[Rfam]
RNA sequence: CUUAUGUGGAGUCCAGCCACCACACCAAAAACGGGGCGUCACCGAAAAGCCAGAUGAGUAGGACCAUC
Numbered sequence: 001c002u003u004a005u006g007u008g009g010a011g012u013c014c015a016g017c018c019a020c021c022a023c024a025c026c027a028a029a030a031a032c033g034g035g036g037c038g039u040c041a042c043c044g045a046a047a048a049g050c051c052a053g054a055u056g057a058g059u060a061g062g063a064c065c066a067u068c
Base pairs, nucleotide, nucleotide: 006023007022008021009020035051036050037049042062043061
Record summary
A member of the RNA family "DUF805 RNA", 68 nucleotides long. The base pairs follow the family's consensus structure, which is taken from published work. Its Rfam clan is "DUF805 clan".